[Rfam]
RNA: Ribosomal protein L13 leader
RNA sequence: GGUAUUGUUUGCCCCACGAUAAGCCCCGGAAACUUGUUAUUGGUGUUCAAACAAACA
Numbered sequence: 001g002g003u004a005u006u007g008u009u010u011g012c013c014c015c016a017c018g019a020u021a022a023g024c025c026c027c028g029g030a031a032a033c034u035u036g037u038u039a040u041u042g043g044u045g046u047u048c049a050a051a052c053a054a055a056c057a
Base pairs, nucleotide, nucleotide: 006053007052008051009050010049011048016040018038019037020036021035022034023033